Rfam assigns this 102-nucleotide RNA from Medicago truncatula to the family "MIR4414 microRNA precursor family". Rfam links the family to the GO terms RISC complex and miRNA-mediated post-transcriptional gene silencing. The sequence is in the family's curated seed alignment.
[Rfam]
RNA sequence: GCUGAGACUCAGCUGCUGACUCGUUGGUUCAAUAGCUCACAACAUGCAUAGUGUCAACGUGUGUGCUUCUGAUCCAACGAUGCGGGAGCUGCAUUCCAGUCG
Numbered sequence: 001g002c003u004g005a006g007a008c009u010c011a012g013c014u015g016c017u018g019a020c021u022c023g024u025u026g027g028u029u030c031a032a033u034a035g036c037u038c039a040c041a042a043c044a045u046g047c048a049u050a051g052u053g054u055c056a057a058c059g060u061g062u063g064u065g066c067u068u069c070u071g072a073u074c075c076a077a078c079g080a081u082g083c084g085g086g087a088g089c090u091g092c093a094u095u096c097c098a099g100u101c102g
Base pairs, nucleotide, nucleotide: 001100002099003098004096005095006094010091011090012089013088014087016085017084018083021080022079023078024077025076026075027074029072030071031070034067035066036065038063039062040061042060043059
NCBI's taxonomy places the organism under Eukaryota, Tracheophyta, Gunneridae, Fabaceae, Medicago.